Rfam assigns this 140-nucleotide RNA sequence to the family "IMES-2 RNA motif". Rfam classes the family as a non-coding RNA gene. The literature on the family includes a 2009 paper in Nature by Weinberg et al., "Exceptional structured noncoding RNAs revealed by bacterial metagenome analysis". Pairs were carried over by alignment from the consensus structure, which is taken from published work.
[Rfam]
RNA sequence: UAUUUAAUUAAGGGGCAACCCUUAACUGGCCGAUUAGGGAAAAACCGAGAGGUUCAAGCCUAGGGGGCAGAAAGUUUCGCGGAGUAGCGCUAAAAUCGCGAAGCGUGGGCAUGGCGGUAGCGCAUACAACGACGUGCCAA
Numbered sequence: 001u002a003u004u005u006a007a008u009u010a011a012g013g014g015g016c017a018a019c020c021c022u023u024a025a026c027u028g029g030c031c032g033a034u035u036a037g038g039g040a041a042a043a044a045c046c047g048a049g050a051g052g053u054u055c056a057a058g059c060c061u062a063g064g065g066g067g068c069a070g071a072a073a074g075u076u077u078c079g080c081g082g083a084g085u086a087g088c089g090c091u092a093a094a095a096u097c098g099c100g101a102a103g104c105g106u107g108g109g110c111a112u113g114g115c116g117g118u119a120g121c122g123c124a125u126a127c128a129a130c131g132a133c134g135u136g137c138c139a140a
Stems, first nucleotide, its partner, number of pairs: 008025007026070003030067002034063005043054004074104008087123005108138006115131002